[Rfam]
RNA: mir-450 microRNA precursor family
RNA sequence: GCUGAACUGUUUUUGCGAUGUGUUCCUAAUAUGCAGUAUGAACAUAUUGGGAGCAUUUUGCAUGCAUGGUUUUGUAUC
Numbered sequence: 001g002c003u004g005a006a007c008u009g010u011u012u013u014u015g016c017g018a019u020g021u022g023u024u025c026c027u028a029a030u031a032u033g034c035a036g037u038a039u040g041a042a043c044a045u046a047u048u049g050g051g052a053g054c055a056u057u058u059u060g061c062a063u064g065c066a067u068g069g070u071u072u073u074g075u076a077u078c
Base pairs, nucleotide, nucleotide: 004072005071006070007069008068009067010066014062015061016060017059018058020056021055022054023053024052025051026050027049028048029047030046031045032044033043